[Rfam]
tRNA: a 124-nucleotide RNA from Ceratocystis fimbriata. The family's RNA type in Rfam is transfer RNA. Rfam links the family to the GO term triplet codon-amino acid adaptor activity. The base pairs follow the family's consensus structure, which is taken from published work. Taxonomically the source falls in Ceratocystis fimbriata (Eukaryota, Sordariomycetes, Hypocreomycetidae, Ceratocystis).
RNA sequence: GCUUCGAUGGCGCAGUGGUAGCGCAGUGGUCUCAUAAUCAUGAGGAGCUUGAUUUCCACAUCAUUCUUCGUCGUCAUGCUGUCAUGAUAUCCAAAGGUCGUGAGUUCGACCCUCACUCGGAGCA
Numbered sequence: 001g002c003u004u005c006g007a008u009g010g011c012g013c014a015g016u017g018g019u020a021g022c023g024c025a026g027u028g029g030u031c032u033c034a035u036a037a038u039c040a041u042g043a044g045g046a047g048c049u050u051g052a053u054u055u056c057c058a059c060a061u062c063a064u065u066c067u068u069c070g071u072c073g074u075c076a077u078g079c080u081g082u083c084a085u086g087a088u089a090u091c092c093a094a095a096g097g098u099c100g101u102g103a104g105u106u107c108g109a110c111c112c113u114c115a116c117u118c119g120g121a122g123c124a
Stems, first nucleotide, its partner, number of pairs: 001123007010024004027093003100116005